ZMP/ZTP riboswitch aptamer (pfl RNA motif): an 82-nucleotide sequence from Anaerosacchariphilus polymeriproducens.
The source organism's lineage runs through Bacteria, Bacillati, Bacillota, Clostridia and Anaerosacchariphilus.

[Rfam]
RNA sequence: GAUAAUCUAUACGACUGGCGGAUAAGUAGGUUUACCUACAGGAAGUAUAGAUAGUUUAAUGUCGACCGCCUGGGCAGCCAUA
Numbered sequence: 001g002a003u004a005a006u007c008u009a010u011a012c013g014a015c016u017g018g019c020g021g022a023u024a025a026g027u028a029g030g031u032u033u034a035c036c037u038a039c040a041g042g043a044a045g046u047a048u049a050g051a052u053a054g055u056u057u058a059a060u061g062u063c064g065a066c067c068g069c070c071u072g073g074g075c076a077g078c079c080a081u082a
Stems, first nucleotide, its partner, number of pairs: 003054001005052008015042002017070005027038004060076004